[Rfam]
RNA sequence: GAAACCUCAUCUUGCUCAAGCGCCAUCCGGGCGCCAGGGCAGUGUUUUUAUAAAAUACAGGCGUCCGCCUGGAUGAGGAGAAAGU
Numbered sequence: 001g002a003a004a005c006c007u008c009a010u011c012u013u014g015c016u017c018a019a020g021c022g023c024c025a026u027c028c029g030g031g032c033g034c035c036a037g038g039g040c041a042g043u044g045u046u047u048u049u050a051u052a053a054a055a056u057a058c059a060g061g062c063g064u065c066c067g068c069c070u071g072g073a074u075g076a077g078g079a080g081a082a083a084g085u
Stems, first nucleotide, its partner, number of pairs: 005078008015039003020034005042058005059070004